[Rfam]
RNA sequence: CUGUGGUGCAUUGUAGUUGCAUUGCAUGUUAAAGUCAACAGUGCAAUGUGUCUGCUCUGCAGCACAG
Numbered sequence: 001c002u003g004u005g006g007u008g009c010a011u012u013g014u015a016g017u018u019g020c021a022u023u024g025c026a027u028g029u030u031a032a033a034g035u036c037a038a039c040a041g042u043g044c045a046a047u048g049u050g051u052c053u054g055c056u057c058u059g060c061a062g063c064a065c066a067g
Stems, first nucleotide, its partner, number of pairs: 001067004006063001007061004013055004019049001021047007
This 67-nucleotide RNA sequence from Parambassis ranga belongs to the Rfam family "mir-33 microRNA precursor family". The family has 73 seed sequences and 1,467 matches in Rfam 15.1. Its family is annotated with RISC complex and gene silencing by miRNA in the Gene Ontology. Lineage of the source: Eukaryota > Vertebrata > Neoteleostei > Ctenosquamata > Parambassis. The literature on the family includes a 2010 paper in Mol Hum Reprod by Ahn et al., "MicroRNA transcriptome in the newborn mouse ovaries determined by massive parallel sequencing".